[Rfam]
RNA sequence: CCCAGACUUGCCAAUGAUGAAACAUAGUUAAACUGAAAUUAAUGAUGUAAUUCAGUUCCUUCGUCACUACCACUGAGGCAACAGAUGGG
Numbered sequence: 001c002c003c004a005g006a007c008u009u010g011c012c013a014a015u016g017a018u019g020a021a022a023c024a025u026a027g028u029u030a031a032a033c034u035g036a037a038a039u040u041a042a043u044g045a046u047g048u049a050a051u052u053c054a055g056u057u058c059c060u061u062c063g064u065c066a067c068u069a070c071c072a073c074u075g076a077g078g079c080a081a082c083a084g085a086u087g088g089g
Stems, first nucleotide, its partner, number of pairs: 001089004008081005
Dot-bracket structure: ((((...(((((................................................................)))))....))))
RNA: Small nucleolar RNA SNORD70